[Rfam]
MIR4371 microRNA precursor family: a 158-nucleotide RNA sequence from Glycine max.

RNA sequence: UCGUUAAGUCAUGACGUGACAGACAAAGUGUCAUGUCAUCAUGCCUUGUCACAAACAUCUCAUUGUCUCAUCAUCACCUUCAAUGACAUGGCAAUGACAUGUAUGUGACAAGACGUGAUGACGUGACACUUCAUCUGUCACAUCAUCGUUUAAUGGAA
Numbered sequence: 001u002c003g004u005u006a007a008g009u010c011a012u013g014a015c016g017u018g019a020c021a022g023a024c025a026a027a028g029u030g031u032c033a034u035g036u037c038a039u040c041a042u043g044c045c046u047u048g049u050c051a052c053a054a055a056c057a058u059c060u061c062a063u064u065g066u067c068u069c070a071u072c073a074u075c076a077c078c079u080u081c082a083a084u085g086a087c088a089u090g091g092c093a094a095u096g097a098c099a100u101g102u103a104u105g106u107g108a109c110a111a112g113a114c115g116u117g118a119u120g121a122c123g124u125g126a127c128a129c130u131u132c133a134u135c136u137g138u139c140a141c142a143u144c145a146u147c148g149u150u151u152a153a154u155g156g157a158a
Stems, first nucleotide, its partner, number of pairs: 001156009011146004016141008026131018045112002048109005055102004071086004
Source information:
Its family is annotated with miRNA-mediated post-transcriptional gene silencing and RISC complex in the Gene Ontology. The family has 4 seed sequences and 321 matches in Rfam 15.1. A search with the family's covariance model found it, with a score of 138 bits.